RNA: epsC RNA
RNA sequence: CGGGCAUCCCUGCAAGCCCUUAUCGUGGCAGGACUCGAUCAUGCUGUGGGACAAGCUCCUUAGCGUAAAGCGCAAGGGUAUGAUGCGGGGAAGGCAGGUAAAAUAACUGCCCU
Number, nucleotide and partner (000 for none) at each position: 001c000002g018003g017004g000005c000006a000007u033008c000009c032010c031011u030012g029013c028014a000015a000016g000017c003018c002019c000020u000021u000022a000023u000024c000025g000026u000027g000028g013029c012030a011031g010032g009033a007034c089035u088036c087037g086038a084039u083040c082041a081042u080043g079044c078045u077046g000047u000048g060049g059050g058051a057052c000053a000054a000055g000056c000057u051058c050059c049060u048061u000062a000063g073064c072065g071066u070067a000068a000069a000070g066071c065072g064073c063074a000075a000076g000077g045078g044079u043080a042081u041082g040083a039084u038085g000086c037087g036088g035089g034090g000091a000092a113093g112094g111095c000096a000097g000098g000099u000100a000101a000102a000103a000104u000105a000106a000107c000108u000109g000110c000111c094112c093113u092